[Rfam]
RNA sequence: GUCCGUGAACCGUGAGGAAAUAGUCUCCCCUUGCGGAUCCGGCGAAAUACCAUCAACAAAAGGAG
Numbered sequence: 001g002u003c004c005g006u007g008a009a010c011c012g013u014g015a016g017g018a019a020a021u022a023g024u025c026u027c028c029c030c031u032u033g034c035g036g037a038u039c040c041g042g043c044g045a046a047a048u049a050c051c052a053u054c055a056a057c058a059a060a061a062g063g064a065g
Base pairs, nucleotide, nucleotide: 003042004041005040007039008038010036011035012034013033014032015031016030017029
RNA: L20-Deltaproteobacteria ribosomal protein leader
Organism: Geobacteraceae bacterium